Rfam assigns this 129-nucleotide sequence from Scytalopus superciliaris to the family "Small Cajal body specific RNA 4". From the family's description: scaRNAs are a specific class of small nuclear RNAs which localise to the Cajal bodies and guide the modification of RNA polymerase II transcribed spliceosomal RNAs U1, U2, U4, U5 and U12. The base pairs follow the family's consensus structure, which was predicted with RNAfold. It is annotated as a small Cajal body RNA. Rfam 15.1 lists 634 matches to the family in 510 species.
RNA sequence: ACUGGAGGACUAGUGAGGCUGAGUCUGGAGAGUGAGACUCAGGUGCCAGUGGCCUCCUAAGAGUAAAGGGAUGGAGAGAGCAGCCCUGGCCCCAAAAAAGCCAAGGGCUCACUGUGCCAUCUGACACUG
Number, nucleotide and partner (000 for none) at each position: 001a000002c061003u060004g057005g056006a055007g054008g053009a000010c000011u000012a000013g000014u000015g000016a000017g044018g000019c042020u000021g040022a039023g038024u037025c036026u035027g000028g000029a000030g000031a000032g000033u000034g000035a026036g025037a024038c023039u022040c021041a000042g019043g000044u017045g000046c000047c000048a000049g000050u000051g000052g000053c008054c007055u006056c005057c004058u000059a000060a003061g002062a000063g000064u000065a000066a000067a000068g122069g121070g120071a000072u000073g000074g000075a000076g000077a000078g000079a113080g112081c000082a109083g108084c107085c106086c105087u104088g000089g000090c000091c000092c000093c100094a000095a000096a000097a000098a000099a000100g093101c000102c000103a000104a087105g086106g085107g084108c083109u082110c000111a000112c080113u079114g000115u000116g000117c000118c000119a000120u070121c069122u068123g000124a000125c000126a000127c000128u000129g000
Its Rfam clan is "SCARNA4 clan".